[Rfam]
RNA sequence: UCCACACCCAAGUGUAUAGGACCCCAAAGGAUCAUCAUUAAAUUUGACACAAAUCUCUAUAAAAGUUAUCACAUGGGUGUGGGACUUGACUUUUUUAAAGAUAUGUGCCAAAUUUAAUGGUGACCCUUUGGGGUCCUACAUACAUGGGUGUGGG
Numbered sequence: 001u002c003c004a005c006a007c008c009c010a011a012g013u014g015u016a017u018a019g020g021a022c023c024c025c026a027a028a029g030g031a032u033c034a035u036c037a038u039u040a041a042a043u044u045u046g047a048c049a050c051a052a053a054u055c056u057c058u059a060u061a062a063a064a065g066u067u068a069u070c071a072c073a074u075g076g077g078u079g080u081g082g083g084a085c086u087u088g089a090c091u092u093u094u095u096u097a098a099a100g101a102u103a104u105g106u107g108c109c110a111a112a113u114u115u116a117a118u119g120g121u122g123a124c125c126c127u128u129u130g131g132g133g134u135c136c137u138a139c140a141u142a143c144a145u146g147g148g149u150g151u152g153g154g
Stems, first nucleotide, its partner, number of pairs: 002153009012143002015140001017138012030125001032123001034121013048107004053102004058097002061094008069082005

Rfam assigns this 154-nucleotide sequence from Amborella trichopoda to the family "MIR8565 microRNA precursor family". Taxonomically the source falls in Amborella (Eukaryota, Streptophyta, Streptophytina, Embryophyta). Its family is annotated with miRNA-mediated post-transcriptional gene silencing and RISC complex in the Gene Ontology.